[Rfam]
RNA: Bacterial large subunit ribosomal RNA, nucleotides 2758 to 3018
Organism: Methylomirabilis oxygeniifera
RNA sequence: GGAGAUUUGCGGGGAUCUGUCCCUAGUACGAGAGGACCGGGAUGGACGAACCUCUAGUGUGCCAGUUGUUCUGCCAAGGGCAUCGCUGGGUAGCUAUGUUCGGAAGGGAUAAACGCUGAAAGCAUCUAAGUGCGAAGCCCACCCCAAGAUGAGAUCUCCCGGGCGAAAGCCCCUAAAGACUCCUUGCAGAUCACAAGGUUGAUAGGCCAGGUGUGUAAGCGCAGGAAUGCGUUUAGCUUACUGGUACUAAUCGGUCGUGCG
Numbered sequence: 001g002g003a004g005a006u007u008u009g010c011g012g013g014g015a016u017c018u019g020u021c022c023c024u025a026g027u028a029c030g031a032g033a034g035g036a037c038c039g040g041g042a043u044g045g046a047c048g049a050a051c052c053u054c055u056a057g058u059g060u061g062c063c064a065g066u067u068g069u070u071c072u073g074c075c076a077a078g079g080g081c082a083u084c085g086c087u088g089g090g091u092a093g094c095u096a097u098g099u100u101c102g103g104a105a106g107g108g109a110u111a112a113a114c115g116c117u118g119a120a121a122g123c124a125u126c127u128a129a130g131u132g133c134g135a136a137g138c139c140c141a142c143c144c145c146a147a148g149a150u151g152a153g154a155u156c157u158c159c160c161g162g163g164c165g166a167a168a169g170c171c172c173c174u175a176a177a178g179a180c181u182c183c184u185u186g187c188a189g190a191u192c193a194c195a196a197g198g199u200u201g202a203u204a205g206g207c208c209a210g211g212u213g214u215g216u217a218a219g220c221g222c223a224g225g226a227a228u229g230c231g232u233u234u235a236g237c238u239u240a241c242u243g244g245u246a247c248u249a250a251u252c253g254g255u256c257g258u259g260c261g
Stems, first nucleotide, its partner, number of pairs: 001159008011145004017045007047102005055096003062089005067082006106140003114132004162173002175258001178256004182198005203249003206245005211239001213237001219232005